[Rfam]
RNA sequence: CGGACCGUGAAAGGCCAGUCCUGUGGGGACUCGGCCAGCACCUGCUGACCGGCGUAGUCCCCGUCGGCGAGCACGCCGAGCGAGGUCACGUCCCCGUAGGCCCCCCGGCCCUCCUUGACGGCUUUCCCUUCCGCCAGCAGGAAAACCUCUUCGGUCGGCUGCCCGGCCUCGGCGAGCGCCUCGCCGGGCGCGUACUCGCGUUGCGCGAGCCGCCCGGCGAGCGCGCCCAGCACCUCCGGGUCGUCGAACCCCCGCAGGAGCGAGAGCUCGGCCAGGCUCGCCGGCACGACCCGGACCUCACUGCCGGUGCGGUAGAACGCCGCGCGGCCCGCGCCGGUGGUGUGGCUGAGCCUGCGGUUCACGCGGUAGGUGCCCGCGGUGGCUUCCACCCACGGCAGCUGCCGCAGCAGCCAGCGCGGGCUGAUGCCCUGCAUGUGCGGAACCGUCUUGGUGGUGGUGGCGAGGUUCCGCGCCGCGCCGGUGCUCAGGCUCAGCCGGGUCCGGGUU
Numbered sequence: 001c002g003g004a005c006c007g008u009g010a011a012a013g014g015c016c017a018g019u020c021c022u023g024u025g026g027g028g029a030c031u032c033g034g035c036c037a038g039c040a041c042c043u044g045c046u047g048a049c050c051g052g053c054g055u056a057g058u059c060c061c062c063g064u065c066g067g068c069g070a071g072c073a074c075g076c077c078g079a080g081c082g083a084g085g086u087c088a089c090g091u092c093c094c095c096g097u098a099g100g101c102c103c104c105c106c107g108g109c110c111c112u113c114c115u116u117g118a119c120g121g122c123u124u125u126c127c128c129u130u131c132c133g134c135c136a137g138c139a140g141g142a143a144a145a146c147c148u149c150u151u152c153g154g155u156c157g158g159c160u161g162c163c164c165g166g167c168c169u170c171g172g173c174g175a176g177c178g179c180c181u182c183g184c185c186g187g188g189c190g191c192g193u194a195c196u197c198g199c200g201u202u203g204c205g206c207g208a209g210c211c212g213c214c215c216g217g218c219g220a221g222c223g224c225g226c227c228c229a230g231c232a233c234c235u236c237c238g239g240g241u242c243g244u245c246g247a248a249c250c251c252c253c254g255c256a257g258g259a260g261c262g263a264g265a266g267c268u269c270g271g272c273c274a275g276g277c278u279c280g281c282c283g284g285c286a287c288g289a290c291c292c293g294g295a296c297c298u299c300a301c302u303g304c305c306g307g308u309g310c311g312g313u314a315g316a317a318c319g320c321c322g323c324g325c326g327g328c329c330c331g332c333g334c335c336g337g338u339g340g341u342g343u344g345g346c347u348g349a350g351c352c353u354g355c356g357g358u359u360c361a362c363g364c365g366g367u368a369g370g371u372g373c374c375c376g377c378g379g380u381g382g383c384u385u386c387c388a389c390c391c392a393c394g395g396c397a398g399c400u401g402c403c404g405c406a407g408c409a410g411c412c413a414g415c416g417c418g419g420g421c422u423g424a425u426g427c428c429c430u431g432c433a434u435g436u437g438c439g440g441a442a443c444c445g446u447c448u449u450g451g452u453g454g455u456g457g458u459g460g461c462g463a464g465g466u467u468c469c470g471c472g473c474c475g476c477g478c479c480g481g482u483g484c485u486c487a488g489g490c491u492c493a494g495c496c497g498g499g500u501c502c503g504g505g506u507u
Stems, first nucleotide, its partner, number of pairs: 007389003011385002014383003018328002021324001024322003028318001030315001036312001038310005048302001051299002054233002058229001062225003066110003075103001078101001082097001084095002121222004126217002131212001133210002137204004141197001143196001149192001153189001155187005160178002164174001166173002235295003240290005249283001253280002256278002260272001261270002329342001332339001352379006360372003391431002394428004399423001401421001403418003407415001437476004443470001445468001447465003451461002481502001484499003488495001
RNA: Saccharopolyspora sRNA 350
Organism: Amycolatopsis acidicola